Small nucleolar RNA snoR111: a 148-nucleotide RNA sequence from Hibiscus trionum. On this family, see Marker et al., Curr Biol 2002: "Experimental RNomics: identification of 140 candidates for small non-messenger RNAs in the plant Arabidopsis thaliana". Rfam classes the family as an H/ACA-box small nucleolar RNA. The family's consensus secondary structure was predicted with WAR.
RNA sequence: CUGUUCGUUUAAGAGAGUGAUGAGCCAUUUUUUUUAUUUCGUCUUCUCACUGGGGAGGAACAUUGAUGUAUAAUGAAAAUUGAAGGCCGAGAUAUCGUUUCAGUCGUCAUUCUCUUUGAUUGGCGAUUUGAUUGUUGCUCGUCCACAU
Number, nucleotide and partner (000 for none) at each position: 001c000002u000003g000004u000005u000006c055007g000008u054009u053010u052011a051012a000013g048014a047015g046016a045017g044018u000019g000020a000021u000022g000023a000024g000025c000026c000027a000028u000029u000030u000031u000032u000033u000034u000035u000036a000037u000038u000039u000040c000041g000042u000043c000044u017045u016046c015047u014048c013049a000050c000051u011052g010053g009054g008055g006056a000057g000058g000059a000060a000061c000062a000063u000064u000065g000066a000067u000068g000069u000070a000071u000072a000073a000074u000075g000076a000077a000078a000079a000080u000081u000082g000083a000084a000085g144086g143087c000088c141089g140090a139091g138092a000093u000094a132095u131096c130097g129098u000099u000100u000101c000102a000103g127104u126105c125106g124107u123108c122109a121110u000111u119112c118113u000114c000115u000116u000117u000118g112119a111120u000121u109122g108123g107124c106125g105126a104127u103128u000129u097130g096131a095132u094133u000134g000135u000136u000137g000138c091139u090140c089141g088142u000143c086144c085145a000146c000147a000148u000

NCBI's taxonomy places the organism under Eukaryota, Mesangiospermae, eudicotyledons, Malvales, Hibiscus.
The match comes from Rfam's covariance-model search (83 bits).
Rfam links the family to the GO terms RNA processing and nucleolus.